[Rfam]
RNA sequence: CCCACCGUUGAAACGGUGGGCUAUAAUCGGGCUGUCCCUCCGGGACA
Number, nucleotide and partner (000 for none) at each position: 001c020002c019003c018004a017005c016006c015007g014008u013009u000010g000011a000012a000013a008014c007015g006016g005017u004018g003019g002020g001021c000022u000023a000024u000025a000026a000027u000028c000029g000030g000031g000032c000033u000034g046035u045036c044037c043038c042039u000040c000041c000042g038043g037044g036045a035046c034047a000
The family of this 47-nucleotide RNA sequence from Candidatus Electrothrix aarhusensis is "Acido-Lenti-1 RNA". By type it is a small RNA. A search with the family's covariance model found it, with a score of 38 bits. The base pairs follow the family's consensus structure, which is taken from published work.